RNA sequence: GAGGCCGGCAAGUGCUGGGUCCAUCAUGACACGAUGGAUAAGAGAGGUGCAAUUCCUCCCCUUAACCCCCGGUAGCGGCCCA
Numbered sequence: 001g002a003g004g005c006c007g008g009c010a011a012g013u014g015c016u017g018g019g020u021c022c023a024u025c026a027u028g029a030c031a032c033g034a035u036g037g038a039u040a041a042g043a044g045a046g047g048u049g050c051a052a053u054u055c056c057u058c059c060c061c062u063u064a065a066c067c068c069c070c071g072g073u074a075g076c077g078g079c080c081c082a
Stems, first nucleotide, its partner, number of pairs: 005018005012050001019039007044058004059072002066078002070075001

Rfam assigns this 82-nucleotide sequence from Tobamovirus frangipani to the family "Tymovirus/Pomovirus/Furovirus tRNA-like 3' UTR element". Rfam 15.1 lists 38 matches to the family in 28 species. Taxonomically the source falls in Tobamovirus frangipani (Viruses, Riboviria, Orthornavirae, Tobamovirus). It is annotated as a cis-regulatory element. This family represents a tRNA-like structure found in the 3' UTR of Tymoviruses, Pomoviruses and Furovirus. Gene Ontology term of the family: regulation of translation. Pairs were carried over by alignment from the consensus structure, which is taken from published work.